[Rfam]
RNA: M-box riboswitch aptamer (ykoK leader)
Organism: Aerococcus sanguinicola
RNA sequence: AAUAAACCUUGUUAGGUGAGGUUACUGUAUUAGAGAGACGCCACUGCCCAGAAACAUCCAAAGAUGCCAACGGGUCAGCAGAAAUUCUCGAAUUAAGGGAUUUUCUAAUGUGGCUGGAGCUACUCCUAUGCUAAUAAGUGCUAAAACUAUGCGAUGAGGUGUUUG
Numbered sequence: 001a002a003u004a005a006a007c008c009u010u011g012u013u014a015g016g017u018g019a020g021g022u023u024a025c026u027g028u029a030u031u032a033g034a035g036a037g038a039c040g041c042c043a044c045u046g047c048c049c050a051g052a053a054a055c056a057u058c059c060a061a062a063g064a065u066g067c068c069a070a071c072g073g074g075u076c077a078g079c080a081g082a083a084a085u086u087c088u089c090g091a092a093u094u095a096a097g098g099g100a101u102u103u104u105c106u107a108a109u110g111u112g113g114c115u116g117g118a119g120c121u122a123c124u125c126c127u128a129u130g131c132u133a134a135u136a137a138g139u140g141c142u143a144a145a146a147c148u149a150u151g152c153g154a155u156g157a158g159g160u161g162u163u164u165g
Stems, first nucleotide, its partner, number of pairs: 006160005011152002013096001015148003020142003025138002028136006040114005046075004055066004081105004087099003116126003